[Rfam]
RNA sequence: ACGAUUCUUUUUGCGGUCUGGGCUUGCUGUGAUCGUGAUCUGGAAGCCCUUACCCCAAAAAGCAUUCG
Dot-bracket structure: ......(((((((.(((..((((.(.(..............).).))))..))).)))))))......
Numbered sequence: 001a002c003g004a005u006u007c008u009u010u011u012u013g014c015g016g017u018c019u020g021g022g023c024u025u026g027c028u029g030u031g032a033u034c035g036u037g038a039u040c041u042g043g044a045a046g047c048c049c050u051u052a053c054c055c056c057a058a059a060a061a062g063c064a065u066u067c068g
Stems, first nucleotide, its partner, number of pairs: 007062007015054003020049004025044001027042001